[Rfam]
RNA sequence: ACCGGUCCUCGGUAGUGGCCCCCGGGGCUCCGCACCAUCGGCCCCCCGGGCGCUUCGAUCGAAGACCGGC
Numbered sequence: 001a002c003c004g005g006u007c008c009u010c011g012g013u014a015g016u017g018g019c020c021c022c023c024g025g026g027g028c029u030c031c032g033c034a035c036c037a038u039c040g041g042c043c044c045c046c047c048g049g050g051c052g053c054u055u056c057g058a059u060c061g062a063a064g065a066c067c068g069g070c
Base pairs, nucleotide, nucleotide: 002069003068004067005066006065007064009062010061011060012059013058017054018053019052021050022049023048024047025046026045027044028041029040
RNA: Actino-pnp RNA